[Rfam]
RNA sequence: GCCGGUCCUCGGUAGUGGCUUCCGGUAGGACAGAGACAGUGAUCCUUGACCGGGUGCUUCGAUCGAAGACCGGC
Numbered sequence: 001g002c003c004g005g006u007c008c009u010c011g012g013u014a015g016u017g018g019c020u021u022c023c024g025g026u027a028g029g030a031c032a033g034a035g036a037c038a039g040u041g042a043u044c045c046u047u048g049a050c051c052g053g054g055u056g057c058u059u060c061g062a063u064c065g066a067a068g069a070c071c072g073g074c
Base pairs, nucleotide, nucleotide: 001074002073003072004071005070006069007068009066010065011064012063013062017058018057019056021054022053023052024051025050026049027047028046029045
RNA: Actino-pnp RNA